[Rfam]
Nucleotides: 028
Base pairs, nucleotide, nucleotide: 001028002027003026004025008023010020011019012018
Number, partner (000 for none) and nucleotide at each position: 001028c002027a003026a004025c005000c006000u007000c008023u009000g010020a011019c012018g013000a014000a015000a016000a017000a018012c019011g020010u021000g022000a023008a024000u025004g026003u027002u028001g

The record is a 28-nucleotide RNA, which matches "L19-Flavobacteria ribosomal protein leader" in Rfam.
The family's RNA type in Rfam is cis-regulatory leader.
A reference for the family is Eckert and Weinberg (2020), "Discovery of 20 novel ribosomal leader candidates in bacteria and archaea", BMC Microbiol.